[Rfam]
Description: The family of this 340-nucleotide sequence from Lachancea thermotolerans is "RNase MRP". Rfam classes the family as a ribozyme. Gene Ontology terms of the family: ribonuclease MRP activity, rRNA processing and ribonuclease MRP complex. Its Rfam clan is "RNaseP clan". A reference for the family is Walker and Avis (2005), "Secondary structure probing of the human RNase MRP RNA reveals the potential for MRP RNA subsets", Biochem Biophys Res Commun.
RNA sequence: UCCAUGGUCGAAGAAUCGUCACUAAUCGAAGCUUGCAAACUGGGCUCAGUCCCAUGAUAAGCUUUGGGUUGAAAGUCUCCCACCAGGUCGUAUGCGGAAAACGCAAUGAGAUUUAAAAAUCUUAAAAUUGUUUAAAUCCACUCAUUAGAGUUGAGAGAGGUUAUGGGCUUCGGCUUGUGCCUCUCUUUGCUUUCCUGUCCCCCGGGAUCCUGGCGGUUCCGGUGGUGUCUUCGGUAAUGGAAUCGAAUGUUUGGAUUCCAAAACAUAGUUAUGACGAUUGUCGUGCUGUUGCUUGCAACUGCGCGGUAACCCAAUGGAGCUUACUUUUCUUGGCUCAUGG
Numbered sequence: 001u002c003c004a005u006g007g008u009c010g011a012a013g014a015a016u017c018g019u020c021a022c023u024a025a026u027c028g029a030a031g032c033u034u035g036c037a038a039a040c041u042g043g044g045c046u047c048a049g050u051c052c053c054a055u056g057a058u059a060a061g062c063u064u065u066g067g068g069u070u071g072a073a074a075g076u077c078u079c080c081c082a083c084c085a086g087g088u089c090g091u092a093u094g095c096g097g098a099a100a101a102c103g104c105a106a107u108g109a110g111a112u113u114u115a116a117a118a119a120u121c122u123u124a125a126a127a128u129u130g131u132u133u134a135a136a137u138c139c140a141c142u143c144a145u146u147a148g149a150g151u152u153g154a155g156a157g158a159g160g161u162u163a164u165g166g167g168c169u170u171c172g173g174c175u176u177g178u179g180c181c182u183c184u185c186u187u188u189g190c191u192u193u194c195c196u197g198u199c200c201c202c203c204g205g206g207a208u209c210c211u212g213g214c215g216g217u218u219c220c221g222g223u224g225g226u227g228u229c230u231u232c233g234g235u236a237a238u239g240g241a242a243u244c245g246a247a248u249g250u251u252u253g254g255a256u257u258c259c260a261a262a263a264c265a266u267a268g269u270u271a272u273g274a275c276g277a278u279u280g281u282c283g284u285g286c287u288g289u290u291g292c293u294u295g296c297a298a299c300u301g302c303g304c305g306g307u308a309a310c311c312c313a314a315u316g317g318a319g320c321u322u323a324c325u326u327u328u329c330u331u332g333g334c335u336c337a338u339g340g
Base pairs, nucleotide, nucleotide: 002340003339004338005337006336007335008333009332010331011330014279015278016277017276018275019274026067027066028065029064030063031062032061042053043052044051073322074321075320077319078318079317080316093105094104095103096102108123109122110121111120112119113118125251126250131247132246133245135243137240138239151236222232224230225229281306282305283304284303285302286301